RNA sequence: GUCUAUUCUCAGGGCGGGGUGAAAGUCCCCACCGGCGGUAUUCCCCGAUUCGGGGAGAGCCCGCGAGCGCCCUCCGCGUGGAGGGGUCAGCAGAUCCGGUGGGAAGCCGGAGCCGACGGUAACAGUCCGGAUGAAAGAGAAAUGGA
Numbered sequence: 001g002u003c004u005a006u007u008c009u010c011a012g013g014g015c016g017g018g019g020u021g022a023a024a025g026u027c028c029c030c031a032c033c034g035g036c037g038g039u040a041u042u043c044c045c046c047g048a049u050u051c052g053g054g055g056a057g058a059g060c061c062c063g064c065g066a067g068c069g070c071c072c073u074c075c076g077c078g079u080g081g082a083g084g085g086g087u088c089a090g091c092a093g094a095u096c097c098g099g100u101g102g103g104a105a106g107c108c109g110g111a112g113c114c115g116a117c118g119g120u121a122a123c124a125g126u127c128c129g130g131a132u133g134a135a136a137g138a139g140a141a142a143u144g145g146a
Stems, first nucleotide, its partner, number of pairs: 003144001006141005017029003031126002033115002035064004059113002067091002095111005117129003
A member of the RNA family "FMN riboswitch aptamer (RFN element)" from Bilophila wadsworthia, 146 nucleotides long. Rfam describes the family as follows. The RFN element is a highly conserved domain that is found frequently in the 5'-untranslated regions of prokaryotic mRNAs that encode for flavin mononucleotide (FMN) biosynthesis and transport proteins. It scores 109 bits against the family's covariance model.